[Rfam]
RNA sequence: GCCGGGCCCGGUGGCGCGUGCCUGUAAUCCAAGUGUCCGGGAGGCUGAGGUUGGCGGAUCGACUGAGCUGUGGAGUUCUAGGCUGCUGCGUGCUAUGUCGAACGGGCGUCCCUACUAAGUUCGGUAUCGAUAUGGUUUGCCUGGGGGAGCCCGUGCUCACCAGGUCGUCUAAGGAGGGGUGCACCGGCCCAGGUCGGAAACGAAGCAGGUCAAAGCCCCCGUGCCGUCCAGUGGUGGGAUUGCGCCUGUGAGUAGACGUUGCACCCUGGCCAUGGCGAGACAUCGAAACACAAUCUUUU
Number, nucleotide and partner (000 for none) at each position: 001g045002c044003c043004g023005g022006g021007c020008c000009c018010g017011g000012u000013g000014g000015c000016g000017c010018g009019u000020g007021c006022c005023u004024g000025u000026a000027a000028u042029c041030c040031a000032a000033g000034u000035g000036u000037c000038c000039g000040g030041g029042a028043g003044g002045c001046u000047g297048a296049g295050g294051u293052u292053g291054g000055c000056g000057g000058a000059u286060c285061g284062a283063c000064u000065g000066a000067g276068c275069u274070g273071u272072g271073g270074a000075g000076u000077u000078c269079u268080a267081g266082g265083c000084u263085g262086c261087u000088g259089c258090g257091u000092g000093c255094u254095a253096u252097g000098u250099c000100g000101a000102a249103c248104g247105g246106g245107c244108g243109u242110c238111c237112c000113u236114a235115c234116u233117a232118a000119g229120u000121u000122c226123g225124g224125u223126a222127u221128c167129g166130a165131u164132a000133u162134g161135g160136u159137u000138u000139g156140c155141c000142u153143g152144g151145g150146g000147g000148a000149g000150c145151c144152c143153g142154u000155g140156c139157u000158c000159a136160c135161c134162a133163g000164g131165u130166c129167g128168u174169c173170u000171a000172a000173g169174g168175a000176g219177g218178g217179g216180u215181g000182c000183a000184c000185c000186g211187g210188c209189c208190c000191a000192g000193g000194u203195c202196g201197g000198a000199a000200a000201c196202g195203a194204a000205g000206c000207a000208g189209g188210u187211c186212a000213a000214a000215g180216c179217c178218c177219c176220c000221g127222u126223g125224c124225c123226g122227u000228c000229c119230a000231g000232u117233g116234g115235u114236g113237g111238g110239a000240u000241u000242g109243c108244g107245c106246c105247u104248g103249u102250g098251a000252g096253u095254a094255g093256a000257c090258g089259u088260u000261g086262c085263a084264c000265c082266c081267u080268g079269g078270c073271c072272a071273u070274g069275g068276c067277g000278a000279g000280a000281c000282a000283u062284c061285g060286a059287a000288a000289c000290a000291c053292a052293a051294u050295c049296u048297u047298u000299u000

Metazoan signal recognition particle RNA: a 299-nucleotide RNA from Esox lucius. The signal recognition particle (SRP) is a universally conserved ribonucleoprotein. It is involved in the co-translational targeting of proteins to membranes. The eukaryotic SRP consists of a 300-nucleotide 7S RNA and six proteins: SRPs 72, 68, 54, 19, 14, and 9. By type it is a non-coding RNA gene. The source organism's lineage runs through Eukaryota, Bilateria, Deuterostomia, Vertebrata and Esox. The base pairs follow the family's consensus structure, which is taken from published work.